Shown here is a 102-nucleotide sequence from Populus alba, a member of the family "MIR480 microRNA precursor family". A search with the family's covariance model found it, with a score of 63 bits. The family's consensus secondary structure was predicted with WAR. A reference for the family is Lu et al. (2005), "Novel and mechanical stress-responsive MicroRNAs in Populus trichocarpa that are absent from Arabidopsis", Plant Cell. The organism belongs to Populus, within Eukaryota. Its family is annotated with miRNA-mediated post-transcriptional gene silencing and RISC complex in the Gene Ontology. The family has 69 seed sequences and 3,070 matches in Rfam 15.1.
RNA sequence: UGAUUUAUCUAGAGCAGAUCCUCAUCUAGUUAUGACAGAUUUAUACCUGACUACUUAACAUCGCCUAUGAAAACUACUAUGUAAACAAUGUAUUUUUAAGAU
Numbered sequence: 001u002g003a004u005u006u007a008u009c010u011a012g013a014g015c016a017g018a019u020c021c022u023c024a025u026c027u028a029g030u031u032a033u034g035a036c037a038g039a040u041u042u043a044u045a046c047c048u049g050a051c052u053a054c055u056u057a058a059c060a061u062c063g064c065c066u067a068u069g070a071a072a073a074c075u076a077c078u079a080u081g082u083a084a085a086c087a088a089u090g091u092a093u094u095u096u097u098a099a100g101a102u
Stems, first nucleotide, its partner, number of pairs: 004100004012091001014089001019084001023081003027076005